[Rfam]
RNA sequence: GACCCUGGUCAGUUUUGCUGGUUUGCUUUCAGCUUGAAAGACUGCUGUGCAAAUCCAUGCAAAACUGACCAAGGCA
Numbered sequence: 001g002a003c004c005c006u007g008g009u010c011a012g013u014u015u016u017g018c019u020g021g022u023u024u025g026c027u028u029u030c031a032g033c034u035u036g037a038a039a040g041a042c043u044g045c046u047g048u049g050c051a052a053a054u055c056c057a058u059g060c061a062a063a064a065c066u067g068a069c070c071a072a073g074g075c076a
Stems, first nucleotide, its partner, number of pairs: 003074002006071013020056002022053005028047001031046003
RNA: mir-19 microRNA precursor family